[Rfam]
RNA sequence: UUUUAAGUUUUAUAGGGUUCCGCAGUUAUAAAUUGAUUACUGGACUGGUCCAAGAUAAAACGUACAGUUUAACUGUAUUCACGGAAGGAUAAAAGCCUGGGAGAU
Dot-bracket structure: ......((((((..((...(((((((.(........).))))..).)).))....))))))(((((((...))))))).(.[...(((.......))).)..]..
Numbered sequence: 001u002u003u004u005a006a007g008u009u010u011u012a013u014a015g016g017g018u019u020c021c022g023c024a025g026u027u028a029u030a031a032a033u034u035g036a037u038u039a040c041u042g043g044a045c046u047g048g049u050c051c052a053a054g055a056u057a058a059a060a061c062g063u064a065c066a067g068u069u070u071a072a073c074u075g076u077a078u079u080c081a082c083g084g085a086a087g088g089a090u091a092a093a094a095g096c097c098u099g100g101g102a103g104a105u
Stems, first nucleotide, its partner, number of pairs: 007061006015051002020048002022045001023042004028037001062078007080100001082103001086098003